[Rfam]
RNA sequence: CUCAUCGUCUCGGGGUGCUCUCUGUGCGCUGCUCGCGCCACAGAGGGCUGAGAUCACACCCGUAUCACCUGAUCGCGUUAAAGCGCGCGUAGGGAAGACGAGAGCUGAGGAG
Number, nucleotide and partner (000 for none) at each position: 001c000002u000003c000004a000005u000006c100007g099008u098009c097010u096011c062012g061013g060014g059015g000016u056017g048018c047019u046020c045021u044022c043023u042024g041025u040026g039027c000028g000029c000030u000031g000032c000033u000034c000035g000036c000037g000038c000039c026040a025041c024042a023043g022044a021045g020046g019047g018048c017049u000050g000051a000052g000053a000054u000055c000056a016057c000058a000059c014060c013061c012062g011063u000064a000065u000066c000067a000068c093069c092070u091071g090072a000073u000074c087075g086076c085077g084078u000079u000080a000081a000082a000083g000084c077085g076086c075087g074088c000089g000090u071091a070092g069093g068094g000095a000096a010097g009098a008099c007100g006101a000102g000103a000104g000105c000106u000107g000108a000109g000110g000111a000112g000
The family of this 112-nucleotide RNA sequence is "TPP riboswitch aptamer (THI element)".